This 190-nucleotide RNA sequence from Pseudomonas sp. GV071 belongs to the Rfam family "Pseudomonas sRNA P27". Rfam classes the family as a small RNA. A search with the family's covariance model found it, with a score of 183 bits. Pairs were carried over by alignment from the consensus structure, which was predicted with WAR. The literature on the family includes a 2006 paper in Nucleic Acids Res by Livny et al., "Identification of 17 Pseudomonas aeruginosa sRNAs and prediction of sRNA-encoding genes in 10 diverse pathogens using the bioinformatic tool sRNAPredict2". NCBI's taxonomy places the organism under Bacteria, Pseudomonadota, Pseudomonadales, Pseudomonadaceae, Pseudomonas.
[Rfam]
RNA sequence: CGGGUUAACUCCUGCUUGUUACGUUUCAUCCAACCGAGGCCGGAUGUCGUUUGGUGUCAGAUUCCGUAAGGAACCGGGAGCACCAUCUGCGUAGGCUUGAGGUUUAAGACUUACGUCGCCUACGGUCUUGGAUAGCCCCCGCCAGGCAGGGACCCCAAUCUUUCAACAACCGGAGCGAUCGCUCGCUCCG
Numbered sequence: 001c002g003g004g005u006u007a008a009c010u011c012c013u014g015c016u017u018g019u020u021a022c023g024u025u026u027c028a029u030c031c032a033a034c035c036g037a038g039g040c041c042g043g044a045u046g047u048c049g050u051u052u053g054g055u056g057u058c059a060g061a062u063u064c065c066g067u068a069a070g071g072a073a074c075c076g077g078g079a080g081c082a083c084c085a086u087c088u089g090c091g092u093a094g095g096c097u098u099g100a101g102g103u104u105u106a107a108g109a110c111u112u113a114c115g116u117c118g119c120c121u122a123c124g125g126u127c128u129u130g131g132a133u134a135g136c137c138c139c140c141g142c143c144a145g146g147c148a149g150g151g152a153c154c155c156c157a158a159u160c161u162u163u164c165a166a167c168a169a170c171c172g173g174a175g176c177g178a179u180c181g182c183u184c185g186c187u188c189c190g
Stems, first nucleotide, its partner, number of pairs: 002155005011146004022049002027046005034039001052085006058077001060075001062073003089142003094137004102133010172189006